[Rfam]
Overview:
A member of the RNA family "DUF1874 RNA", 92 nucleotides long. Pairs were carried over by alignment from the consensus structure, which is taken from published work. Rfam classes the family as a cis-regulatory element.
RNA sequence: GUCAACCCUGUCCGAUGGUGAGGCCCUCCACGGUAAGAGGUGCCAAAGGCACCCGCCUCACCGUCCCGCAAGGGAUAGGACAGGGGGGAGGA
Numbered sequence: 001g002u003c004a005a006c007c008c009u010g011u012c013c014g015a016u017g018g019u020g021a022g023g024c025c026c027u028c029c030a031c032g033g034u035a036a037g038a039g040g041u042g043c044c045a046a047a048g049g050c051a052c053c054c055g056c057c058u059c060a061c062c063g064u065c066c067c068g069c070a071a072g073g074g075a076u077a078g079g080a081c082a083g084g085g086g087g088g089a090g091g092a
Stems, first nucleotide, its partner, number of pairs: 006085008017062008037054001039053005063076005
Dot-bracket structure: .....((((((((...((((((((............(.(((((.....))))))))))))))(((((....))))).)))))))).......